Overview
The record is a 127-nucleotide RNA from Pipistrellus kuhlii, which matches "U11 spliceosomal RNA" in Rfam. NCBI's taxonomy places the organism under Eukaryota, Craniata, Sarcopterygii, Yangochiroptera, Pipistrellus. Its family is annotated with mRNA 5'-splice site recognition, U11 snRNP and pre-mRNA 5'-splice site binding in the Gene Ontology. The family is grouped with related families in Rfam's "U1 clan". The base pairs follow the family's consensus structure, which is taken from published work. On this family, see Montzka and Steitz, Proc Natl Acad Sci U S A 1988: "Additional low-abundance human small nuclear ribonucleoproteins: U11, U12, etc".

[Rfam]
Nucleotides: 127
Stems, first nucleotide, its partner, number of pairs: 008077005013026005027051002033049006052069002055066001095125002098122001100121005107115003
Number, partner (000 for none) and nucleotide at each position: 001000a002000a003000a004000a005000a006000a007000g008077g009076c010075u011074u012073u013026u014025g015024u016023u017022g018000u019000g020000a021000g022017u023016g024015g025014c026013a027051c028050a029000u030000g031000u032000a033049g034048g035047g036046c037045a038044g039000c040000u041000u042000g043000a044038u045037u046036g047035c048034u049033c050028u051027g052069a053068a054000c055066c056000a057000a058000c059000a060000u061000c062000a063000a064000g065000a066055g067000a068053u069052u070000u071000c072000a073012a074011a075010a076009g077008c078000c079000u080000a081000a082000u083000u084000u085000u086000u087000u088000a089000g090000u091000a092000u093000c094000u095125g096124g097000a098122u099000g100121g101120c102119u103118g104117g105000u106000a107115a108114u109113c110000a111000u112000u113109g114108g115107u116000c117104c118103u119102g120101g121100u122098g123000c124096c125095c126000a127000a
About this RNA: By type it is a spliceosomal small nuclear RNA. It scores 61 bits against the family's covariance model.